[Rfam]
RNA: HDV ribozyme from F. prausnitzii
Nucleotides: 069
Base pairs, nucleotide, nucleotide: 001036002035003034004033005032006031007030017029018028019027043056044055045054046053047052
Number, partner (000 for none) and nucleotide at each position: 001036a002035g003034u004033g005032u006031g007030c008000g009000a010000u011000a012000g013000a014000c015000a016000u017029a018028c019027c020000u021000c022000c023000a024000c025000g026000u027019g028018g029017u030007g031006c032005a033004c034003a035002c036001u037000g038000g039000g040000c041000a042000a043056c044055g045054u046053a047052u048000a049000c050000u051000c052047a053046u054045a055044c056043g057000g058000c059000a060000a061000a062000a063000g064000g065000u066000a067000c068000c069000u